[Rfam]
RNA sequence: CAAAAGGCUCUUUUCAGAGCCACCACAACUUCCAAAAAGAGAUAAU
Numbered sequence: 001c002a003a004a005a006g007g008c009u010c011u012u013u014u015c016a017g018a019g020c021c022a023c024c025a026c027a028a029c030u031u032c033c034a035a036a037a038a039g040a041g042a043u044a045a046u
Stems, first nucleotide, its partner, number of pairs: 006021006
RNA: Histone 3' UTR stem-loop
Organism: Patiria miniata